[Rfam]
RNA sequence: CCAGACGGUUGGACGGUCGCUGCCUUGCUUUGCAAGGGAGAGGAAAGUCCGGGCUCCACGGAAGAACGGUGCCGGUUAAUGACCGGCGAGGGCGACCUUAGGGAAAGUGCCACAGAAAACAAACCGCCUUCCGGGUACCACUCAUGGGCAACCAUGGGACGGAAUACUGAAGGUAAGGGUGAAACGGUGCGGUAAGAGCGCACCGCUCGGCUGGUAACAGCGGAGGCAUGGUAAACCCCACCGGGAGCAAAACCAAAUAGGAGCGGCAGAAACCCUUAACGGGGUUUCAGGGGUCUUUCGCCCCGCUGCUCGGGUUGGUUGCACGAGGUUUGCCGCAAGGCAAACCCUAGAUGAAUGACCGUCCAGGCCCUUUAUUGGGCUGGACAGAACCCGGCUUAUAGACCGUCUGGCCCU
Numbered sequence: 001c002c003a004g005a006c007g008g009u010u011g012g013a014c015g016g017u018c019g020c021u022g023c024c025u026u027g028c029u030u031u032g033c034a035a036g037g038g039a040g041a042g043g044a045a046a047g048u049c050c051g052g053g054c055u056c057c058a059c060g061g062a063a064g065a066a067c068g069g070u071g072c073c074g075g076u077u078a079a080u081g082a083c084c085g086g087c088g089a090g091g092g093c094g095a096c097c098u099u100a101g102g103g104a105a106a107g108u109g110c111c112a113c114a115g116a117a118a119a120c121a122a123a124c125c126g127c128c129u130u131c132c133g134g135g136u137a138c139c140a141c142u143c144a145u146g147g148g149c150a151a152c153c154a155u156g157g158g159a160c161g162g163a164a165u166a167c168u169g170a171a172g173g174u175a176a177g178g179g180u181g182a183a184a185c186g187g188u189g190c191g192g193u194a195a196g197a198g199c200g201c202a203c204c205g206c207u208c209g210g211c212u213g214g215u216a217a218c219a220g221c222g223g224a225g226g227c228a229u230g231g232u233a234a235a236c237c238c239c240a241c242c243g244g245g246a247g248c249a250a251a252a253c254c255a256a257a258u259a260g261g262a263g264c265g266g267c268a269g270a271a272a273c274c275c276u277u278a279a280c281g282g283g284g285u286u287u288c289a290g291g292g293g294u295c296u297u298u299c300g301c302c303c304c305g306c307u308g309c310u311c312g313g314g315u316u317g318g319u320u321g322c323a324c325g326a327g328g329u330u331u332g333c334c335g336c337a338a339g340g341c342a343a344a345c346c347c348u349a350g351a352u353g354a355a356u357g358a359c360c361g362u363c364c365a366g367g368c369c370c371u372u373u374a375u376u377g378g379g380c381u382g383g384a385c386a387g388a389a390c391c392c393g394g395c396u397u398a399u400a401g402a403c404c405g406u407c408u409g410g411c412c413c414u
Stems, first nucleotide, its partner, number of pairs: 001410010011399001012363007020040002023037006045397003049394005054247004063298003067243005072086005087101001088099004102238002107236002109232003124178002126174006133167001186204006205227001206225003210221004251320004261311006290304005327346008
Bacterial RNase P class A: a 414-nucleotide RNA from Acetobacter orientalis. The family's consensus secondary structure is taken from published work. From the family's description: Ribonuclease P (RNase P) is a ubiquitous endoribonuclease, found in archaea, bacteria and eukarya as well as chloroplasts and mitochondria. The match comes from Rfam's covariance-model search (336 bits).